[Rfam]
RNA sequence: CUGUCUCUUACUUCACAGUGUUUGGAUGGAAUAG
Numbered sequence: 001c002u003g004u005c006u007c008u009u010a011c012u013u014c015a016c017a018g019u020g021u022u023u024g025g026a027u028g029g030a031a032u033a034g
Base pairs, nucleotide, nucleotide: 001034002033003032004031006030007029008028010027012026013025014024015023016020

Shown here is a 34-nucleotide RNA from Enhydra lutris, a member of the family "Iron response element I".
The family's consensus secondary structure is taken from published work.
Lineage of the source: Eukaryota > Metazoa > Craniata > Mammalia > Enhydra lutris.
For this family Rfam cites "An atypical iron-responsive element (IRE) within crayfish ferritin mRNA and an iron regulatory protein 1 (IRP1)-like protein from crayfish hepatopancreas" (Huang et al., Insect Biochem Mol Biol, 1999).